[Rfam]
RNA sequence: CGCAUAUGAAGGAGACAGACCAAUGGGACUUACGCGAUCUUUGAAUGUCCUCAUGAUCUGUGCGGCAUUUGCAUUUGUUGCAGCGUUGAUAGCAGGCGUCAUCCCUUAGGGGAAUUAGCCUAAACCAUUACGGCGGCUUCGGUUUUGAGGAUAGGCCGACCCGCACGAAAAUGAAAAGCCCGGCGUCACCGCCGGGCUU
Numbered sequence: 001c002g003c004a005u006a007u008g009a010a011g012g013a014g015a016c017a018g019a020c021c022a023a024u025g026g027g028a029c030u031u032a033c034g035c036g037a038u039c040u041u042u043g044a045a046u047g048u049c050c051u052c053a054u055g056a057u058c059u060g061u062g063c064g065g066c067a068u069u070u071g072c073a074u075u076u077g078u079u080g081c082a083g084c085g086u087u088g089a090u091a092g093c094a095g096g097c098g099u100c101a102u103c104c105c106u107u108a109g110g111g112g113a114a115u116u117a118g119c120c121u122a123a124a125c126c127a128u129u130a131c132g133g134c135g136g137c138u139u140c141g142g143u144u145u146u147g148a149g150g151a152u153a154g155g156c157c158g159a160c161c162c163g164c165a166c167g168a169a170a171a172u173g174a175a176a177a178g179c180c181c182g183g184c185g186u187c188a189c190c191g192c193c194g195g196g197c198u199u
Base pairs, nucleotide, nucleotide: 014049015048016047017046025041026040027039028038176199177198178197179196180195181194182193183192184191185190
Rfam assigns this 199-nucleotide RNA sequence from Brucella anthropi to the family "Rhizobiales sRNA Atu_C9". The base pairs follow the family's consensus structure, which was predicted with WAR. The organism belongs to Brucella anthropi, within Bacteria. For this family Rfam cites "Deep sequencing uncovers numerous small RNAs on all four replicons of the plant pathogen Agrobacterium tumefaciens" (Wilms et al., RNA Biol, 2012). The family's RNA type in Rfam is small RNA. It scores 48 bits against the family's covariance model.